RNA sequence: UAGAUGUUAUAUGACUGACGGAUAAAGUGGAAAUGACCACAGGAAGUAUAAUGUUGAUAAAAGCCGACCGUCUGGGCAGAAAAG
Numbered sequence: 001u002a003g004a005u006g007u008u009a010u011a012u013g014a015c016u017g018a019c020g021g022a023u024a025a026a027g028u029g030g031a032a033a034u035g036a037c038c039a040c041a042g043g044a045a046g047u048a049u050a051a052u053g054u055u056g057a058u059a060a061a062a063g064c065c066g067a068c069c070g071u072c073u074g075g076g077c078a079g080a081a082a083a084g
Stems, first nucleotide, its partner, number of pairs: 003055010015043002017072005027040004063077003
RNA: ZMP/ZTP riboswitch aptamer (pfl RNA motif)